[Rfam]
Nucleotides: 189
Base pairs, nucleotide, nucleotide: 005184006183007182008181009180011178012177013176014175015174016173017172019170020169021168022167023166024165025164026163031157032156034154035141036140037139038138039137040136041135042134043132044131046128047127048126049125050124051123052122053121054120055119059115060114061113062112064110
Number, partner (000 for none) and nucleotide at each position: 001000u002000a003000g004000g005184u006183u007182u008181g009180u010000c011178c012177u013176a014175a015174g016173u017172c018000c019170a020169a021168c022167u023166u024165a025164u026163c027000u028000a029000a030000c031157u032156u033000u034154a035141u036140a037139g038138a039137g040136a041135a042134a043132u044131a045000u046128a047127a048126c049125a050124u051123c052122u053121a054120u055119a056000c057000u058000a059115c060114c061113g062112a063000a064110u065000a066000u067000a068000u069000g070000c071000a072000c073000u074000a075000u076000c077000a078000a079000a080000a081000u082000a083000u084000a085000u086000u087000c088000c089000a090000u091000g092000a093000u094000g095000a096000a097000u098000u099000c100000a101000a102000u103000g104000a105000a106000a107000a108000a109000a110064a111000a112062u113061u114060g115059g116000u117000a118000u119055u120054g121053u122052g123051g124050a125049u126048g127047u128046u129000u130000u131044u132043a133000u134042u135041u136040u137039u138038u139037c140036u141035a142000c143000a144000a145000a146000a147000a148000a149000c150000u151000u152000g153000g154034u155000c156032a157031a158000a159000g160000u161000u162000a163026g164025a165024u166023a167022a168021g169020u170019u171000u172017g173016a174015c175014u176013u177012a178011g179000g180009a181008c182007a183006a184005a185000c186000g187000g188000a189000g